Shown here is a 132-nucleotide RNA from Streptomyces cellostaticus, a member of the family "Streptomyces-metH RNA". It scores 85 bits against the family's covariance model. The base pairs follow the family's consensus structure, which is taken from published work.
RNA sequence: UGCGUCCGCCUCGUGGACGCCGGUGCCCAUCCAAGCCCACUCCCGGUUACUCUGACGCCGUGCCCCUUGCCCGGCCCUCGCCGGGGAAGCCGCAUAGCCGACAGCCGUCGCACCCCAGGGAGCCCUUUCAUG
Numbered sequence: 001u002g003c004g005u006c007c008g009c010c011u012c013g014u015g016g017a018c019g020c021c022g023g024u025g026c027c028c029a030u031c032c033a034a035g036c037c038c039a040c041u042c043c044c045g046g047u048u049a050c051u052c053u054g055a056c057g058c059c060g061u062g063c064c065c066c067u068u069g070c071c072c073g074g075c076c077c078u079c080g081c082c083g084g085g086g087a088a089g090c091c092g093c094a095u096a097g098c099c100g101a102c103a104g105c106c107g108u109c110g111c112a113c114c115c116c117a118g119g120g121a122g123c124c125c126u127u128u129c130a131u132g
Base pairs, nucleotide, nucleotide: 061094062093063092066089067088068087097111098110100109101108102107